Small nucleolar RNA SNORD70: a 90-nucleotide sequence from Urocolius indicus.
snoRNA HBII-234 belongs to the C/D family of snoRNAs. It is the human orthologue of the mouse MBII-234 and is predicted to guide 2'O-ribose methylation of the small 18S rRNA on position A512. It is hosted, together with HBII-95, by the core C/D box snoRNA protein encoding gene NOP5/NOP58.
It scores 78 bits against the family's covariance model.
Taxonomically the source falls in Urocolius (Eukaryota, Sarcopterygii, Tetrapoda, Coliiformes).
RNA sequence: UAACCUGUUGUUGAUGAUGGAUUCUUGUUGAAGCUGAAUAUAAGUGAUUUUGAGUGAAUAUUUCGUCACUACCACUGAGACAACAGGUAU
Numbered sequence: 001u002a003a004c005c006u007g008u009u010g011u012u013g014a015u016g017a018u019g020g021a022u023u024c025u026u027g028u029u030g031a032a033g034c035u036g037a038a039u040a041u042a043a044g045u046g047a048u049u050u051u052g053a054g055u056g057a058a059u060a061u062u063u064c065g066u067c068a069c070u071a072c073c074a075c076u077g078a079g080a081c082a083a084c085a086g087g088u089a090u
Stems, first nucleotide, its partner, number of pairs: 003088010
On this family, see Huttenhofer et al., EMBO J 2001: "RNomics: an experimental approach that identifies 201 candidates for novel, small, non-messenger RNAs in mouse".